Record summary:
Shown here is a 110-nucleotide RNA sequence from Pontibacillus chungwhensis, a member of the family "SAM riboswitch aptamer (S box leader)". A search with the family's covariance model found it, with a score of 80 bits.
[Rfam]
RNA sequence: AUCUUAUCCAGAGAAGGUGGAGGGACAGGCCCUAUGAAACCCAGCAACCGUCAUCCUUAGAUGAAAAGGUGCUAACCUGAUGCAAGGAAGACCUCCUUGAACGAUAAGAG
Dot-bracket structure: .(((((((....(..(((...(((.[[.[)))......))))((((.((.(((........)))...))))))....]..]]((((((.....))))))...))))))).
Numbered sequence: 001a002u003c004u005u006a007u008c009c010a011g012a013g014a015a016g017g018u019g020g021a022g023g024g025a026c027a028g029g030c031c032c033u034a035u036g037a038a039a040c041c042c043a044g045c046a047a048c049c050g051u052c053a054u055c056c057u058u059a060g061a062u063g064a065a066a067a068g069g070u071g072c073u074a075a076c077c078u079g080a081u082g083c084a085a086g087g088a089a090g091a092c093c094u095c096c097u098u099g100a101a102c103g104a105u106a107a108g109a110g
Stems, first nucleotide, its partner, number of pairs: 002109007013042001016041003022032003026082002029078001043073004048069002051064003083099006